[Rfam]
This 86-nucleotide sequence from Cucumis melo belongs to the Rfam family "Small nucleolar RNA Z122". Pairs were carried over by alignment from the consensus structure, which was predicted with PFOLD. A reference for the family is Chen et al. (2003), "The high diversity of snoRNAs in plants: identification and comparative study of 120 snoRNA genes from Oryza sativa", Nucleic Acids Res. Taxonomically the source falls in Cucumis (Eukaryota, Viridiplantae, Pentapetalae, Cucurbitales). Its family is annotated with RNA processing and nucleolus in the Gene Ontology.
RNA sequence: UUUGGGAAGUGAUGACAAACUAGAAAAAUUUCUCAGAUGCAGCUGCUAUGCUGAACUUAGUAUUUGCACGUCAGUCUGAUCCCAUU
Numbered sequence: 001u002u003u004g005g006g007a008a009g010u011g012a013u014g015a016c017a018a019a020c021u022a023g024a025a026a027a028a029u030u031u032c033u034c035a036g037a038u039g040c041a042g043c044u045g046c047u048a049u050g051c052u053g054a055a056c057u058u059a060g061u062a063u064u065u066g067c068a069c070g071u072c073a074g075u076c077u078g079a080u081c082c083c084a085u086u
Stems, first nucleotide, its partner, number of pairs: 003084005